RNA sequence: UGGCUAUAAAAUAACUUAUUCUGUAGCCACUUUGAGUUACGAUAAUUAUUAUACUAAUUUACAUGAUUAUAGUAACUCCUUACUAAGUGAUUUACUAUAAUGUUACAGUAAAUAUCCCCAUAUGUUAUAGUAACAUAAUUAUCGUAAACAUGUAUUCAUUUUAUCGUAAUUUAAAUAUAAAAAAUAUCGUAAAUCGAGGUGACUAUAAAAUAACUUAUUUUAUAUGCUA
Numbered sequence: 001u002g003g004c005u006a007u008a009a010a011a012u013a014a015c016u017u018a019u020u021c022u023g024u025a026g027c028c029a030c031u032u033u034g035a036g037u038u039a040c041g042a043u044a045a046u047u048a049u050u051a052u053a054c055u056a057a058u059u060u061a062c063a064u065g066a067u068u069a070u071a072g073u074a075a076c077u078c079c080u081u082a083c084u085a086a087g088u089g090a091u092u093u094a095c096u097a098u099a100a101u102g103u104u105a106c107a108g109u110a111a112a113u114a115u116c117c118c119c120a121u122a123u124g125u126u127a128u129a130g131u132a133a134c135a136u137a138a139u140u141a142u143c144g145u146a147a148a149c150a151u152g153u154a155u156u157c158a159u160u161u162u163a164u165c166g167u168a169a170u171u172u173a174a175a176u177a178u179a180a181a182a183a184a185u186a187u188c189g190u191a192a193a194u195c196g197a198g199g200u201g202a203c204u205a206u207a208a209a210a211u212a213a214c215u216u217a218u219u220u221u222a223u224a225u226g227c228u229a
Stems, first nucleotide, its partner, number of pairs: 001229004005224010016213005022207005028201006037192008046184002050179004055173003059169004065165003069161001071159001072157001074155001080147004087142006093132011108116001
Shown here is a 229-nucleotide sequence from Miscanthus lutarioriparius, a member of the family "MIR6217 microRNA precursor family". NCBI's taxonomy places the organism under Eukaryota, Viridiplantae, Poaceae, Panicoideae, Miscanthus. Rfam 15.1 lists 2,266 matches to the family in 13 species. The family's consensus secondary structure was predicted with RNAalifold.